[Rfam]
RNA sequence: GCAGACAUAAACACCACGAUGCUCGUUCCACACAGAACCAUUUUUUGUGUUCUUUUUCGCGAGCGGGUAAGGUCUGAGAACUGCUCUCUCGAUUGGCUCUAGCUGGGCCCUUUACCAGGCUUGGUUUUGACCGACAUAUCAGAAAAUCGUCUUUUGCUGUUGGUUCAGCUCGUAUACUCGAAGAUCAGGUUCGGUGUGUAUCUAAUACCCCUGGAUUCUGGGAGACAUGUACAAAGGAGACUUGGAAGUUGUCGUAGAGUUUUGUGGUGCUUGGCGUUGUUUUGGAGUGCUCCGUCGGCACAGCAGUGUUUCUUUUAGAAACGCGGGACAAGCAACUAUGGCUGCCCCCAGGUUGGUUGCUCCUUCGAUGUUACGAAUGUGAUGUCGAUGCUGUAGGCACAAGCUUGCCUCGGGUUGCUAUUGGGGUCAACAGGCAUGAUGUCCUGGCUGAUAAGCAUGAAGGUUGGUGCGGAAGGCUCUGCCCUCACAGCCGGGCAGCGCUCUUAGCAGAUCCUCGUGCGCGCCAAUGGUAUCAUCCCGUGUACGAGGAGAUCCACGCUCUACAAAGGUCCAAGCAUCCUUUAGUGCACUUCGUGGUACACGUUUGCCCUCGAAAGCAUCUUUGGAUGGUUUCAGGCUUGUGCAACUCGAUUCAGACUAUUCUAUGUUUGC
Dot-bracket structure: ((((..(((....[...[.(((((..........((((.(.....)..))))........)))))........(((((.....((((.......(((((.....)))))....((((....))))......(((((............(((((((...............................................................................)))))))........))))).))))............................................................................................................................................................................................................................................................................................................................................]...]...((((....................................))))........))))).......)))..))))
RNA: Nuclear RNase P